The family of this 176-nucleotide RNA from Oryza meridionalis is "MIR807 microRNA precursor family". The family has 30 seed sequences and 1,514 matches in Rfam 15.1. Lineage of the source: Eukaryota > Streptophytina > Mesangiospermae > commelinids > Oryza.
RNA sequence: AACCACACUAUCAAUUAAUGGAUUCACCCGCAAAAUGACGUAGUUGUUUCACAUAUGACGAGGACAUGGCAUCCCAUUAUUAGCCAUCGCACGAAAUUAAUAGGAUGCAACGUCCUCAUCCUAGAUGGAACAACCAUAUCAUCUCACGGGUAAAUCCAUUUAUCGAUAGUGUGGUU
Numbered sequence: 001a002a003c004c005a006c007a008c009u010a011u012c013a014a015u016u017a018a019u020g021g022a023u024u025c026a027c028c029c030g031c032a033a034a035a036u037g038a039c040g041u042a043g044u045u046g047u048u049u050c051a052c053a054u055a056u057g058a059c060g061a062g063g064a065c066a067u068g069g070c071a072u073c074c075c076a077u078u079a080u081u082a083g084c085c086a087u088c089g090c091a092c093g094a095a096a097u098u099a100a101u102a103g104g105a106u107g108c109a110a111c112g113u114c115c116u117c118a119u120c121c122u123a124g125a126u127g128g129a130a131c132a133a134c135c136a137u138a139u140c141a142u143c144u145c146a147c148g149g150g151u152a153a154a155u156c157c158a159u160u161u162a163u164c165g166a167u168a169g170u171g172u173g174g175u176u
Base pairs, nucleotide, nucleotide: 001176002175003174004173005172006171007170009168010167011166012165014163015162017160018159019158021156022155023154024153026151027150028149030147033144035142036141037140038139041136043134044133045132046131047130048129051126054123055122057120058119063114064113065112069108070107071106072105073104074103076101077100078099079098086097087096
Notes: The literature on the family includes a 2006 paper in FEBS Lett by Luo et al., "Rice embryogenic calli express a unique set of microRNAs, suggesting regulatory roles of microRNAs in plant post-embryogenic development".